The record is a 93-nucleotide sequence from Paenibacillus swuensis, which matches "c-di-GMP-I-GGC riboswitch aptamer" in Rfam. The literature on the family includes a 2012 paper in Biochemistry by Smith et al., "Structural and biochemical characterization of linear dinucleotide analogues bound to the c-di-GMP-I aptamer". The match comes from Rfam's covariance-model search (65 bits). Lineage of the source: Bacteria > Bacillati > Caryophanales > Paenibacillaceae > Paenibacillus.
RNA sequence: ACCGAUAAAGGCAAAUUUAGCGAAAGCUAAAGACGCAAAACUAAAGGGUCUUCCUUAGUAGAAUUCUACUAAAAAGACAGCCAGUUACCGAAG
Dot-bracket structure: ..((......((...((((((....))))))..[))..((((...(((((((.....................))))).]))))))..))...